This 135-nucleotide sequence from Oribacterium sp. C9 belongs to the Rfam family "FMN riboswitch aptamer (RFN element)".
A search with the family's covariance model found it, with a score of 88 bits.
The family's consensus secondary structure is taken from published work.

RNA sequence: AAUGAUCUUCGGGGAAUGGGUGAGCAUGAGUAAACAUCGUGCAAGUCCCGAUCGGCGGUAUAGCCCGCGAGCCUUAUGGCAUGAUCCGGUUUGAUUCCGGGGCCGACAGUAAAGUCUGGAUGGAAGAAGAUGAGA
Numbered sequence: 001a002a003u004g005a006u007c008u009u010c011g012g013g014g015a016a017u018g019g020g021u022g023a024g025c026a027u028g029a030g031u032a033a034a035c036a037u038c039g040u041g042c043a044a045g046u047c048c049c050g051a052u053c054g055g056c057g058g059u060a061u062a063g064c065c066c067g068c069g070a071g072c073c074u075u076a077u078g079g080c081a082u083g084a085u086c087c088g089g090u091u092u093g094a095u096u097c098c099g100g101g102g103c104c105g106a107c108a109g110u111a112a113a114g115u116c117u118g119g120a121u122g123g124a125a126g127a128a129g130a131u132g133a134g135a
Stems, first nucleotide, its partner, number of pairs: 003133001005131006018049003051115002053105002055068004063103002073079001085101005107118003